This 82-nucleotide RNA sequence from Ignelater luminosus belongs to the Rfam family "mir-927 microRNA precursor family". The base pairs follow the family's consensus structure, which was predicted with RNAalifold. Rfam 15.1 lists 174 matches to the family in 143 species. Rfam links the family to the GO terms miRNA-mediated post-transcriptional gene silencing and RISC complex. The literature on the family includes a 2007 paper in Genome Res by Ruby et al., "Evolution, biogenesis, expression, and target predictions of a substantially expanded set of Drosophila microRNAs".
[Rfam]
RNA sequence: AUUCUUAUGUUUUGGUUUAGAAUUCCUACGCUUUACCGUAUAUAAGACUGGCAAAGCGUUUGGAUUCUGAAUCGAACCGUAC
Dot-bracket structure: .........(((.((((((((.(((..(((((((.((............)).)))))))..))).)))))))))))......